This 87-nucleotide sequence belongs to the Rfam family "GA-cis RNA". The family's consensus secondary structure is taken from published work. By type it is a small RNA.
RNA sequence: AUGAGGAAGCACCCAUGCAUCGAAGAUGCAUAUUAAAAUGGUGCUGACAACCUGCCGCCGAGUGAAUACGAGGGGGCAUUACAUCAU
Numbered sequence: 001a002u003g004a005g006g007a008a009g010c011a012c013c014c015a016u017g018c019a020u021c022g023a024a025g026a027u028g029c030a031u032a033u034u035a036a037a038a039u040g041g042u043g044c045u046g047a048c049a050a051c052c053u054g055c056c057g058c059c060g061a062g063u064g065a066a067u068a069c070g071a072g073g074g075g076g077c078a079u080u081a082c083a084u085c086a087u
Stems, first nucleotide, its partner, number of pairs: 008045006015031006054077003058073002062069002